[Rfam]
RNA sequence: UAAAUGGACCCAAAGGCGGUAUUUGGUAUUUCCGUUAAAUUUUAAAAGGGGAAUAAUAAAAGACUUGACAUUUA
Numbered sequence: 001u002a003a004a005u006g007g008a009c010c011c012a013a014a015g016g017c018g019g020u021a022u023u024u025g026g027u028a029u030u031u032c033c034g035u036u037a038a039a040u041u042u043u044a045a046a047a048g049g050g051g052a053a054u055a056a057u058a059a060a061a062g063a064c065u066u067g068a069c070a071u072u073u074a
Stems, first nucleotide, its partner, number of pairs: 001074006010026005027055007
RNA: Mitochondrion-encoded tmRNA
Organism: Phytophthora infestans